[Rfam]
RNA sequence: AACCGAUAAGGGCAAACUUAUUGAAAGAUAAGGACGCAAAACUAAGGGCCUAAAGCUUACGAGCUAUGGCAGCCUGGUUGCCGAA
Numbered sequence: 001a002a003c004c005g006a007u008a009a010g011g012g013c014a015a016a017c018u019u020a021u022u023g024a025a026a027g028a029u030a031a032g033g034a035c036g037c038a039a040a041a042c043u044a045a046g047g048g049c050c051u052a053a054a055g056c057u058u059a060c061g062a063g064c065u066a067u068g069g070c071a072g073c074c075u076g077g078u079u080g081c082c083g084a085a
Stems, first nucleotide, its partner, number of pairs: 012037002017032006040079004045075003048070003055064003